[Rfam]
RNA sequence: UUAGCUAUUUUAGAUAGGUUUGUAUUCAUAACUUGGAUACAAACAGACUCGUUUGUAUCUAUGAUGGCUAGGGGAUUUUAGGAUGGACCGCCACAUAGAUAAAAAAUUAUCUAUAGUGGUUAACGACAUCUUUCAUACUUCGACAUUCUAUUAGACUAAGUAUAGAGGUAUUCACUGUAGAUCAAU
Numbered sequence: 001u002u003a004g005c006u007a008u009u010u011u012a013g014a015u016a017g018g019u020u021u022g023u024a025u026u027c028a029u030a031a032c033u034u035g036g037a038u039a040c041a042a043a044c045a046g047a048c049u050c051g052u053u054u055g056u057a058u059c060u061a062u063g064a065u066g067g068c069u070a071g072g073g074g075a076u077u078u079u080a081g082g083a084u085g086g087a088c089c090g091c092c093a094c095a096u097a098g099a100u101a102a103a104a105a106a107u108u109a110u111c112u113a114u115a116g117u118g119g120u121u122a123a124c125g126a127c128a129u130c131u132u133u134c135a136u137a138c139u140u141c142g143a144c145a146u147u148c149u150a151u152u153a154g155a156c157u158a159a160g161u162a163u164a165g166a167g168g169u170a171u172u173c174a175c176u177g178u179a180g181a182u183c184a185a186u
Base pairs, nucleotide, nucleotide: 001071002070003069004068005067006066007065011061012060013059014058015057016056018044019043020042021041022040023039024038025037026036027035028034077135080132081131082130083129084128090120091119092118093117094116096113097112098111099110100109136162137161138160139159140158142156
Enterococcus sRNA 2410: a 186-nucleotide RNA from Enterococcus sulfureus. On this family, see Sinel et al., Sci Rep 2017: "Small RNAs in vancomycin-resistant Enterococcus faecium involved in daptomycin response and resistance". By type it is a small RNA. Lineage of the source: Bacteria > Bacillati > Lactobacillales > Enterococcaceae > Enterococcus sulfureus. Produced as 2 transcripts on Northern blot.